[Rfam]
RNA sequence: AAAUUUCUGAAUCCAUGCACAGAUUUCGUCAGACACCAGCCCAAUAGGGCUGGUCAGACUUCCAAGAUAAGUGAGGUU
Numbered sequence: 001a002a003a004u005u006u007c008u009g010a011a012u013c014c015a016u017g018c019a020c021a022g023a024u025u026u027c028g029u030c031a032g033a034c035a036c037c038a039g040c041c042c043a044a045u046a047g048g049g050c051u052g053g054u055c056a057g058a059c060u061u062c063c064a065a066g067a068u069a070a071g072u073g074a075g076g077u078u
Stems, first nucleotide, its partner, number of pairs: 002077001004075003008071001011068003016064002021060002024058003028054003
RNA: mir-3492 microRNA precursor family